[Rfam]
RNA sequence: GGAAUAUAAGAACUCAUCUCUUAAUUUUUAACUAAAAAAACUAAGAAGCGGUUCUUAAAUAAGAUAUUUAAAAACCGGUUCUUAGCUUUUUUAGUUAAAAAUUAAGAGACAGAUUCUUAUAUUCC
Numbered sequence: 001g002g003a004a005u006a007u008a009a010g011a012a013c014u015c016a017u018c019u020c021u022u023a024a025u026u027u028u029u030a031a032c033u034a035a036a037a038a039a040a041c042u043a044a045g046a047a048g049c050g051g052u053u054c055u056u057a058a059a060u061a062a063g064a065u066a067u068u069u070a071a072a073a074a075c076c077g078g079u080u081c082u083u084a085g086c087u088u089u090u091u092u093a094g095u096u097a098a099a100a101a102u103u104a105a106g107a108g109a110c111a112g113a114u115u116c117u118u119a120u121a122u123u124c125c
Base pairs, nucleotide, nucleotide: 001125002124003123004122005121006120007119008118009117010116011115012114014112017109018108019107020106021105022104023103024102025101026100027099028098029097030096031095032094033093034092035091036090037089038088039087041085042084043083044082045081046080047079
RNA: MIR9563 microRNA precursor family